A member of the RNA family "Small nucleolar RNA Z107/R87" from Protea cynaroides, 104 nucleotides long. A search with the family's covariance model found it, with a score of 92 bits. Rfam links the family to the GO terms nucleolus and RNA processing. The organism belongs to Protea, within Eukaryota. The base pairs follow the family's consensus structure, which was predicted with RNAfold.
RNA sequence: GAUUGCGAUGAUGACUCAGAAAAUUCAAGCUCAACAGACCGGAAUGCAGGUUUCUUCUCUUUGGAGGAAUUUGCGUGUCGAUUAUCCCGCUGAACUGAGCGAUC
Dot-bracket structure: ((((((............................................................................................))))))